[Rfam]
RNA sequence: AGCUUUGCGCAGUGGCAGUAUCGUAGCCAAUGAGGUUUAUCCGAGGUGCGAUUAUUGCUAAUUGAAAAAAAAAAAAAAAGCAAGAGAGUUCCAGAAAAACAUCUAUUUCUGCUUUCUUGACUAUGCCAAAGCCU
Number, nucleotide and partner (000 for none) at each position: 001a000002g000003c000004u000005u000006u000007g000008c000009g000010c000011a000012g000013u000014g000015g000016c000017a000018g000019u000020a052021u051022c050023g049024u048025a000026g047027c046028c045029a000030a000031u000032g000033a000034g042035g041036u000037u000038u000039a000040u000041c035042c034043g000044a000045g028046g027047u026048g024049c023050g022051a021052u020053u000054a000055u000056u000057g000058c000059u000060a000061a000062u000063u000064g000065a000066a000067a000068a000069a000070a000071a000072a000073a000074a000075a000076a000077a000078a000079a000080g112081c111082a110083a108084g107085a106086g000087a104088g103089u000090u101091c000092c000093a000094g000095a000096a000097a000098a000099a000100c000101a090102u000103c088104u087105a000106u085107u084108u083109c000110u082111g081112c080113u000114u000115u000116c000117u000118u000119g000120a000121c000122u000123a134124u000125g132126c131127c000128a000129a000130a000131g126132c125133c000134u123
The record is a 134-nucleotide sequence from Cervus hanglu, which matches "U4 spliceosomal RNA" in Rfam. The match comes from Rfam's covariance-model search (75 bits). The family is grouped with related families in Rfam's "U4 clan". Rfam classes the family as a spliceosomal small nuclear RNA. Taxonomically the source falls in Cervus hanglu (Eukaryota, Dipnotetrapodomorpha, Cervinae, Cervus). The family has 177 seed sequences and 32,178 matches in Rfam 15.1.